Rfam assigns this 99-nucleotide sequence from Paenibacillus donghaensis to the family "Purine riboswitch aptamer". From the family's description: Riboswitches are metabolite binding domains within certain messenger RNAs that serve as precision sensors for their corresponding targets.
[Rfam]
RNA sequence: UGAAUAACCUUUUUUUAUUUUCGUAUAUCCUUAAUAAUCGGGUUAAGGGUCUCUACCGGGAACCGUAAAUUUCUGGCUACGAGAAUAUGCAGGCAAGCU
Numbered sequence: 001u002g003a004a005u006a007a008c009c010u011u012u013u014u015u016u017a018u019u020u021u022c023g024u025a026u027a028u029c030c031u032u033a034a035u036a037a038u039c040g041g042g043u044u045a046a047g048g049g050u051c052u053c054u055a056c057c058g059g060g061a062a063c064c065g066u067a068a069a070u071u072u073c074u075g076g077c078u079a080c081g082a083g084a085a086u087a088u089g090c091a092g093g094c095a096a097g098c099u
Base pairs, nucleotide, nucleotide: 018085019084020083021082022081023080024079025078029048030047031046032045033044034043035042057075058074059073060072061071062070